[Rfam]
RNA: L31-Actinobacteria ribosomal protein leader
RNA sequence: CCGGCACCGGUUCACCCCGGCACGCCCGUUCCGGCGUCCCGGGGAUCCGGCGCC
Numbered sequence: 001c002c003g004g005c006a007c008c009g010g011u012u013c014a015c016c017c018c019g020g021c022a023c024g025c026c027c028g029u030u031c032c033g034g035c036g037u038c039c040c041g042g043g044g045a046u047c048c049g050g051c052g053c054c
Stems, first nucleotide, its partner, number of pairs: 003054003007050004015044006022037005